A member of the RNA family "mir-393 microRNA precursor family" from Actinidia chinensis, 149 nucleotides long. The match comes from Rfam's covariance-model search (63 bits). The family has 27 seed sequences and 1,052 matches in Rfam 15.1. The source organism's lineage runs through Eukaryota, Streptophytina, Euphyllophyta, asterids and Actinidia chinensis.
[Rfam]
RNA sequence: GAAGGAGGAAUCCAAAGGGAUAGCAUGAUCCCAAGUUCCCAACUCAUUAUAGAUAUAUGAGCUGAUGAUGAUCAGAAGAGAGAGAAUAAAUUUUUAUGUACAUGAAAAAAGUGAGUUGGGAUCAAUGCGAUCCCUUUGGAUGCCUCCUG
Number, nucleotide and partner (000 for none) at each position: 001g000002a000003a148004g147005g146006a145007g000008g143009a000010a141011u140012c139013c138014a137015a136016a135017g134018g133019g132020a131021u130022a000023g128024c127025a126026u124027g123028a122029u121030c120031c119032c000033a000034a000035g116036u115037u114038c113039c000040c000041a000042a000043c000044u000045c000046a000047u000048u000049a000050u000051a000052g000053a000054u000055a000056u000057a000058u000059g000060a000061g000062c000063u000064g000065a000066u000067g000068a000069u000070g000071a000072u000073c000074a000075g000076a000077a000078g000079a000080g000081a000082g000083a000084g000085a000086a000087u000088a000089a000090a000091u000092u000093u000094u000095u000096a000097u000098g000099u000100a000101c000102a000103u000104g000105a000106a000107a000108a000109a000110a000111g000112u000113g038114a037115g036116u035117u000118g000119g031120g030121a029122u028123c027124a026125a000126u025127g024128c023129g000130a021131u020132c019133c018134c017135u016136u015137u014138g013139g012140a011141u010142g000143c008144c000145u006146c005147c004148u003149g000
Gene Ontology terms of the family: miRNA-mediated post-transcriptional gene silencing and RISC complex.